[Rfam]
RNA sequence: UCUCGGGUAGCUCAACGGUGGAGCAGUCGGCUGUUAACCGAAAGGUUGUGGGUUCGAGUCCCACCCUGAGAG
Numbered sequence: 001u002c003u004c005g006g007g008u009a010g011c012u013c014a015a016c017g018g019u020g021g022a023g024c025a026g027u028c029g030g031c032u033g034u035u036a037a038c039c040g041a042a043a044g045g046u047u048g049u050g051g052g053u054u055c056g057a058g059u060c061c062c063a064c065c066c067u068g069a070g071a072g
Base pairs, nucleotide, nucleotide: 001071002070003069004068005067006066007065010024011023012022013021027041028040029039030038048064049063050062051061052060
Overview:
The family of this 72-nucleotide RNA sequence from Andreesenia angusta is "tRNA". The organism belongs to Andreesenia, within Bacteria. Rfam classes the family as a transfer RNA. The match comes from Rfam's covariance-model search (64 bits). Transfer RNA (tRNA) molecules are approximately 80 nucleotides in length.